[Rfam]
RNA sequence: AGCUGGUCCGAAGGUAGUGAGUUACCUCCAUUGAUUGUUCAGCGUCAGUUACAGAUCGAGCUCCUUAUUCUACUCUUUCUUCCUUCUCACUACUGCACUUGACUAGUUAAAA
Numbered sequence: 001a002g003c004u005g006g007u008c009c010g011a012a013g014g015u016a017g018u019g020a021g022u023u024a025c026c027u028c029c030a031u032u033g034a035u036u037g038u039u040c041a042g043c044g045u046c047a048g049u050u051a052c053a054g055a056u057c058g059a060g061c062u063c064c065u066u067a068u069u070c071u072a073c074u075c076u077u078u079c080u081u082c083c084u085u086c087u088c089a090c091u092a093c094u095g096c097a098c099u100u101g102a103c104u105a106g107u108u109a110a111a112a
Stems, first nucleotide, its partner, number of pairs: 001108008010100002014096002016091006044073002047071002